[Rfam]
RNA sequence: ACGACCUUACUUGAACAGGAUCUGUUCUAUAGGGACGUGCCUCUGUAUCCUUUCGAUAAAAGGAGACGGUAACCAAAGCUUGGUAGAUGAACCAUGACCGUGUGAUCAGAGCGUGAUUAAUGGCCAAGAUUCAAGCUCUGUGAAACUCUAGGCUGUAGAGGAUCGUUCUCAACCUGCCACGCUGGCUGAGAUGGUCACACGGUUGUCUGACAGGCU
Numbered sequence: 001a002c003g004a005c006c007u008u009a010c011u012u013g014a015a016c017a018g019g020a021u022c023u024g025u026u027c028u029a030u031a032g033g034g035a036c037g038u039g040c041c042u043c044u045g046u047a048u049c050c051u052u053u054c055g056a057u058a059a060a061a062g063g064a065g066a067c068g069g070u071a072a073c074c075a076a077a078g079c080u081u082g083g084u085a086g087a088u089g090a091a092c093c094a095u096g097a098c099c100g101u102g103u104g105a106u107c108a109g110a111g112c113g114u115g116a117u118u119a120a121u122g123g124c125c126a127a128g129a130u131u132c133a134a135g136c137u138c139u140g141u142g143a144a145a146c147u148c149u150a151g152g153c154u155g156u157a158g159a160g161g162a163u164c165g166u167u168c169u170c171a172a173c174c175u176g177c178c179a180c181g182c183u184g185g186c187u188g189a190g191a192u193g194g195u196c197a198c199a200c201g202g203u204u205g206u207c208u209g210a211c212a213g214g215c216u
Stems, first nucleotide, its partner, number of pairs: 001038002005033003013027006043069004048064006078215005097203012110167004120156006127149003131145001135141002168190004173185002176182002
Plant small nucleolar RNA U3: a 216-nucleotide sequence from Aquilegia coerulea. For this family Rfam cites "The uRNA database" (Zwieb, Nucleic Acids Res, 1997). Small nucleolar RNAs (snoRNAs) are involved in the processing and modification of rRNA in the nucleolus. There are two main classes of snoRNAs: the box C/D class, and the box H/ACA class.